Rfam assigns this 92-nucleotide sequence from Bicyclus anynana to the family "mir-2788 microRNA precursor family".
[Rfam]
Nucleotides: 092
Stems, first nucleotide, its partner, number of pairs: 008088002011085003014081003021074009032063002035061005041056003
Number, partner (000 for none) and nucleotide at each position: 001000g002000c003000g004000a005000c006000a007000a008088g009087c010000g011085g012084c013083c014081g015080u016079a017000u018000a019000g020000c021074u022073g023072g024071g025070g026069u027068u028067u029066c030000c031000u032063a033062g034000c035061g036060g037059c038058a039057u040000g041056u042055g043054c044000c045000u046000c047000c048000c049000a050000u051000c052000a053000u054043g055042c056041a057039a058038u059037g060036c061035c062033c063032u064000u065000g066029g067028a068027a069026a070025u071024c072023c073022c074021a075000a076000a077000c078000g079016u080015g081014c082000u083013g084012g085011c086000a087009g088008c089000u090000a091000u092000a
About this RNA
The family has 5 seed sequences and 89 matches in Rfam 15.1. Its family is annotated with RISC complex and miRNA-mediated post-transcriptional gene silencing in the Gene Ontology.